The family of this 81-nucleotide RNA from Kalanchoe fedtschenkoi is "Small nucleolar RNA R21".
A reference for the family is Barneche et al. (2001), "Identification of 66 box C/D snoRNAs in Arabidopsis thaliana: extensive gene duplications generated multiple isoforms predicting new ribosomal RNA 2'-O-methylation sites", J Mol Biol.
It scores 56 bits against the family's covariance model.
RNA sequence: CAUCCCUAUAAUGAUUCAUAUUGAAGAAUGUUAAAAGUAGUGUCUGAAAUCAGCUGAAAAAUUAGUGAGUUCUGGGGGAUA
Numbered sequence: 001c002a003u004c005c006c007u008a009u010a011a012u013g014a015u016u017c018a019u020a021u022u023g024a025a026g027a028a029u030g031u032u033a034a035a036a037g038u039a040g041u042g043u044c045u046g047a048a049a050u051c052a053g054c055u056g057a058a059a060a061a062u063u064a065g066u067g068a069g070u071u072c073u074g075g076g077g078g079a080u081a
Stems, first nucleotide, its partner, number of pairs: 002080005